[Rfam]
RNA sequence: UGAAUGGGUUUCUAGGGUUCCGACUCUCCAGCUUCAGCUCUAGAGGUGUCAGCUGUCAGGGUGUCUGGUCCGAGAGAAACCGCCAGAGAGCAGCGUAUCGUUGCUGAAAUAGACAUUCUCCAGCAAGAUGCUGGCUGCUCAUCUGGUACACGGCGGGAUAAAAGCCCGGGAGGG
Numbered sequence: 001u002g003a004a005u006g007g008g009u010u011u012c013u014a015g016g017g018u019u020c021c022g023a024c025u026c027u028c029c030a031g032c033u034u035c036a037g038c039u040c041u042a043g044a045g046g047u048g049u050c051a052g053c054u055g056u057c058a059g060g061g062u063g064u065c066u067g068g069u070c071c072g073a074g075a076g077a078a079a080c081c082g083c084c085a086g087a088g089a090g091c092a093g094c095g096u097a098u099c100g101u102u103g104c105u106g107a108a109a110u111a112g113a114c115a116u117u118c119u120c121c122a123g124c125a126a127g128a129u130g131c132u133g134g135c136u137g138c139u140c141a142u143c144u145g146g147u148a149c150a151c152g153g154c155g156g157g158a159u160a161a162a163a164g165c166c167c168g169g170g171a172g173g174g
Stems, first nucleotide, its partner, number of pairs: 007081006015071002020068002022065001023062005082147006149169001151172001155167003
Dot-bracket structure: ......((((((..((...((((((((..............................)))))..).)).))....))))))((((((......................................................)))))).(.[...(((.......))).)..]..
Rfam assigns this 174-nucleotide RNA from Halomicronema hongdechloris to the family "Guanidine-I riboswitch aptamer".
This family represents a conserved RNA structure found upstream of the ykkC and yxkD genes in Bacillus subtilis and related genes in other bacteria.
The pairing is the family consensus, mapped onto this sequence.